The family of this 93-nucleotide RNA sequence from Roseovarius sp. TE539 is "L2-Alphaproteobacteria ribosomal protein leader". A reference for the family is Eckert and Weinberg (2020), "Discovery of 20 novel ribosomal leader candidates in bacteria and archaea", BMC Microbiol. It scores 60 bits against the family's covariance model.
RNA sequence: GGGGACCUUCGGGGCCCUGUACCCAAGCCGGGAUUGCCCCCGGCCACCAACAUUGGCGGGGCGACCCGCCGCUUGCUAAACGGAAGACAGAAA
Dot-bracket structure: ((((.(((...)))))))........(.((((................................)))).).......................